[Rfam]
RNA sequence: CUACCUCUCCUUGGGAGAGGUCGGAAUCGCCAGAGCGAUUCCGGGUGAGGAC
Numbered sequence: 001c002u003a004c005c006u007c008u009c010c011u012u013g014g015g016a017g018a019g020g021u022c023g024g025a026a027u028c029g030c031c032a033g034a035g036c037g038a039u040u041c042c043g044g045g046u047g048a049g050g051a052c
Stems, first nucleotide, its partner, number of pairs: 004020007023042008
Rfam assigns this 52-nucleotide RNA from Aggregatimonas sangjinii to the family "Whalefall-1 RNA". Pairs were carried over by alignment from the consensus structure, which is taken from published work. NCBI's taxonomy places the organism under Bacteria, Bacteroidota, Flavobacteriales, Flavobacteriaceae, Aggregatimonas.